Overview:
This 92-nucleotide sequence from Oryctolagus cuniculus belongs to the Rfam family "Small nucleolar RNA U83B". Rfam links the family to the GO terms RNA processing and nucleolus. U83B belongs to the C/D family of snoRNAs. U83B like U83A has no documented RNA target and they share the same host gene with the C/D box snoRNA U43 (RPL3). N.B. U83A/B/C have no sequence similarity with the U83 snoRNA that was cloned by Jady and Kiss (2000). The base pairs follow the family's consensus structure.

RNA sequence: AAUGUUUAGUAAAAUACUAAAAAUUUCUAAAUCUCACAGUGCCCAAAUCACAUUAUGGAUCCAUUCCCUGUUGCUUUUCUUCUGAGAACAGU
Numbered sequence: 001a002a003u004g005u006u007u008a009g010u011a012a013a014a015u016a017c018u019a020a021a022a023a024u025u026u027c028u029a030a031a032u033c034u035c036a037c038a039g040u041g042c043c044c045a046a047a048u049c050a051c052a053u054u055a056u057g058g059a060u061c062c063a064u065u066c067c068c069u070g071u072u073g074c075u076u077u078u079c080u081u082c083u084g085a086g087a088a089c090a091g092u
Stems, first nucleotide, its partner, number of pairs: 001092001003090003